A member of the RNA family "mir-277 microRNA precursor family" from Nezara viridula, 97 nucleotides long. Rfam links the family to the GO terms RISC complex and miRNA-mediated post-transcriptional gene silencing. For this family Rfam cites "MicroRNAs of Bombyx mori identified by Solexa sequencing" (Liu et al., BMC Genomics, 2010).

RNA sequence: UUAGUGUUGGAGUGGGUGCCAGAGGCGCGUUUACAAUGUUGCUGUUUCUCUUUUAGAGAGCUGUAAAUGCACUAUCUGGUACGACAUUCCAGCAUUA
Numbered sequence: 001u002u003a004g005u006g007u008u009g010g011a012g013u014g015g016g017u018g019c020c021a022g023a024g025g026c027g028c029g030u031u032u033a034c035a036a037u038g039u040u041g042c043u044g045u046u047u048c049u050c051u052u053u054u055a056g057a058g059a060g061c062u063g064u065a066a067a068u069g070c071a072c073u074a075u076c077u078g079g080u081a082c083g084a085c086a087u088u089c090c091a092g093c094a095u096u097a
Stems, first nucleotide, its partner, number of pairs: 008091004016082008025072001027070009